[Rfam]
Overview: The family of this 136-nucleotide RNA from Caenorhabditis briggsae is "Nematode sRNA ceN72-3_ceN74-2".

RNA sequence: CACGGUCCGGCGUUGAUGGGUUAUCAGUCGAAAUCUUCUGCUUGCAGGAGAACCGUUCUUCAGACAUCUGUCUGUGGAACAACCCCGCGUUCCUCACGGUUCGCAACCCCUUCCCAUCAACACCAACUUGACCGAU
Number, nucleotide and partner (000 for none) at each position: 001c000002a136003c134004g133005g132006u131007c130008c000009g124010g123011c000012g121013u120014u119015g118016a117017u116018g115019g114020g113021u000022u000023a000024u000025c000026a000027g000028u000029c000030g000031a000032a000033a000034u051035c050036u049037u048038c047039u046040g045041c000042u000043u000044g000045c040046a039047g038048g037049a036050g035051a034052a000053c000054c000055g000056u000057u078058c077059u076060u000061c000062a000063g000064a000065c000066a000067u000068c000069u000070g000071u000072c000073u000074g000075u000076g059077g058078a057079a000080c000081a000082a000083c000084c000085c000086c000087g104088c103089g102090u000091u000092c099093c000094u000095c000096a000097c000098g000099g092100u000101u000102c089103g088104c087105a000106a000107c000108c000109c000110c000111u000112u000113c020114c019115c018116a017117u016118c015119a014120a013121c012122a000123c010124c009125a000126a000127c000128u000129u000130g007131a006132c005133c004134g003135a000136u002
The family has 13 seed sequences and 521 matches in Rfam 15.1. The organism belongs to Caenorhabditis, within Eukaryota. The family's RNA type in Rfam is small RNA. The literature on the family includes a 2007 paper in BMC Mol Biol by Jia et al., "Systematic identification of non-coding RNA 2,2,7-trimethylguanosine cap structures in Caenorhabditis elegans".